[Rfam]
RNA sequence: AAUCGAACACAGGGGCGCUGGGCAACCGGCUGAGAUUGCGUUUUGCGCUUGUCCCUUAAACCUGAUCCGGGUAAUGCCGGCGUAGGAAGCUGCUUCGUAUAUGAGA
Numbered sequence: 001a002a003u004c005g006a007a008c009a010c011a012g013g014g015g016c017g018c019u020g021g022g023c024a025a026c027c028g029g030c031u032g033a034g035a036u037u038g039c040g041u042u043u044u045g046c047g048c049u050u051g052u053c054c055c056u057u058a059a060a061c062c063u064g065a066u067c068c069g070g071g072u073a074a075u076g077c078c079g080g081c082g083u084a085g086g087a088a089g090c091u092g093c094u095u096c097g098u099a100u101a102u103g104a105g106a
Base pairs, nucleotide, nucleotide: 006094008092009091011056012055013054014053017030018029019028020027021026038048039047040046041045061086062085063084064083067080068079069078070077
RNA: TPP riboswitch aptamer (THI element)